[Rfam]
RNA sequence: CCUGUUAUAUCGUUAGGGUGACCUGAUUUAUCAAUUGAAGAUCCUUCGACCAUUAAGAAGAAACCUUUUUUGUUUUUCUCAAGUCGUUGUAAAGCGGAUUUUUG
Numbered sequence: 001c002c003u004g005u006u007a008u009a010u011c012g013u014u015a016g017g018g019u020g021a022c023c024u025g026a027u028u029u030a031u032c033a034a035u036u037g038a039a040g041a042u043c044c045u046u047c048g049a050c051c052a053u054u055a056a057g058a059a060g061a062a063a064c065c066u067u068u069u070u071u072g073u074u075u076u077u078c079u080c081a082a083g084u085c086g087u088u089g090u091a092a093a094g095c096g097g098a099u100u101u102u103u104g
Stems, first nucleotide, its partner, number of pairs: 004076001007073003012050003016046002026035002055070006083095002
RNA: Staphylococcus sRNA sau-13